[Rfam]
RNA sequence: AUAGAGCAACAAACUCUAUACGGUUUAAGUGGGCCCCGUUAGUCUUCUCCUGAGUCGCCAAACUGAGGAAGAUUAUCGGGGUUUUUGCUU
Numbered sequence: 001a002u003a004g005a006g007c008a009a010c011a012a013a014c015u016c017u018a019u020a021c022g023g024u025u026u027a028a029g030u031g032g033g034c035c036c037c038g039u040u041a042g043u044c045u046u047c048u049c050c051u052g053a054g055u056c057g058c059c060a061a062a063c064u065g066a067g068g069a070a071g072a073u074u075a076u077c078g079g080g081g082u083u084u085u086u087g088c089u090u
Stems, first nucleotide, its partner, number of pairs: 001019005027090004031084008040075007
Dot-bracket structure: (((((.........))))).......((((((((((((.(((((((......................))))))).))))))))..))))

Background: Rfam assigns this 90-nucleotide sequence from Erwinia tasmaniensis to the family "CopA-like RNA". The match comes from Rfam's covariance-model search (76 bits). Rfam links the family to the GO term mRNA binding. The family's consensus secondary structure was predicted with PFOLD. Rfam describes the family as follows. In several groups of bacterial plasmids, antisense RNAs regulate copy number through inhibition of replication initiator protein synthesis. These RNAs are characterised by a long hairpin structure interrupted by several unpaired residues or bulged loops. In plasmid R1, the inhibitory complex between the antisense RNA (CopA) and its target mRNA (CopT) is characterised by a four-way junction structure and a side-by-side helical alignment.